[Rfam]
The record is a 107-nucleotide RNA sequence from Cephalotus follicularis, which matches "Plant small nucleolar RNA R71" in Rfam. The organism belongs to Cephalotus, within Eukaryota. Rfam links the family to the GO terms RNA processing and nucleolus.
RNA sequence: AAACCAUGAUGUGGACACUCUAAGAGAAGAUCCUUAAAAUGUUCCAUACACCUAGAAUAUGAUUCAUUUGGUUUUUGACGAAACUAGAGAAUGUCGUUCCUAAGUUU
Dot-bracket structure: (.((.(.................................................((..(..........).))..........................)..)).)
Numbered sequence: 001a002a003a004c005c006a007u008g009a010u011g012u013g014g015a016c017a018c019u020c021u022a023a024g025a026g027a028a029g030a031u032c033c034u035u036a037a038a039a040u041g042u043u044c045c046a047u048a049c050a051c052c053u054a055g056a057a058u059a060u061g062a063u064u065c066a067u068u069u070g071g072u073u074u075u076u077g078a079c080g081a082a083a084c085u086a087g088a089g090a091a092u093g094u095c096g097u098u099c100c101u102a103a104g105u106u107u
Stems, first nucleotide, its partner, number of pairs: 001107001003105002006101001056074002060071001